[Rfam]
RNA sequence: CCACCCGCGUGCCCUUAUCACUUUUCCAGCCCAGCUUCUUCGCUCUGACUGUUGGACGGAGAACUGAUAAGGGUGUGAGGGUGA
Numbered sequence: 001c002c003a004c005c006c007g008c009g010u011g012c013c014c015u016u017a018u019c020a021c022u023u024u025u026c027c028a029g030c031c032c033a034g035c036u037u038c039u040u041c042g043c044u045c046u047g048a049c050u051g052u053u054g055g056a057c058g059g060a061g062a063a064c065u066g067a068u069a070a071g072g073g074u075g076u077g078a079g080g081g082u083g084a
Stems, first nucleotide, its partner, number of pairs: 012073009022063006030055002
RNA: mir-184 microRNA precursor family